[Rfam]
RNA sequence: AUGGGGGAUAGAGGCGCGGCAUUUAAGAGUACCAUUGUGGAGGUAAGCACCAUGAAGCAGUGGGAAAGGAAAUGUCGCCGAAGUGUACAACUGAUGCUUUAAGGUUGUAUGCUGGUUCUAUGCAAAAUAUGUAUAGAACUGUCACAAAUUUUUAUUUGUGGAGAGCUAUCAUUCAA
Numbered sequence: 001a002u003g004g005g006g007g008a009u010a011g012a013g014g015c016g017c018g019g020c021a022u023u024u025a026a027g028a029g030u031a032c033c034a035u036u037g038u039g040g041a042g043g044u045a046a047g048c049a050c051c052a053u054g055a056a057g058c059a060g061u062g063g064g065a066a067a068g069g070a071a072a073u074g075u076c077g078c079c080g081a082a083g084u085g086u087a088c089a090a091c092u093g094a095u096g097c098u099u100u101a102a103g104g105u106u107g108u109a110u111g112c113u114g115g116u117u118c119u120a121u122g123c124a125a126a127a128u129a130u131g132u133a134u135a136g137a138a139c140u141g142u143c144a145c146a147a148a149u150u151u152u153u154a155u156u157u158g159u160g161g162a163g164a165g166c167u168a169u170c171a172u173u174c175a176a
Base pairs, nucleotide, nucleotide: 007170008169009168010167011166016078017077018076019075020074021073022072023071024070032063033062034061035060036059037058038057082113083112084111085110086109087108088107089106090105091104092103114140115139116138117137118136119135120134121133122132123131124130142161143160144159145158146157147156148155